[Rfam]
Notes
The family of this 73-nucleotide sequence from Osedax symbiont Rs1 is "tRNA". From the family's description: Transfer RNA (tRNA) molecules are approximately 80 nucleotides in length.

RNA sequence: GGGGCCAUAGCUCAGCUGGUAGAGCGCAACGCUGGCAGCGUUGAGGUCAGGAGUUCGACCCUCCUUGGCUCCA
Numbered sequence: 001g002g003g004g005c006c007a008u009a010g011c012u013c014a015g016c017u018g019g020u021a022g023a024g025c026g027c028a029a030c031g032c033u034g035g036c037a038g039c040g041u042u043g044a045g046g047u048c049a050g051g052a053g054u055u056c057g058a059c060c061c062u063c064c065u066u067g068g069c070u071c072c073a
Stems, first nucleotide, its partner, number of pairs: 001072007010025004027043005049065005
The base pairs follow the family's consensus structure, which is taken from published work.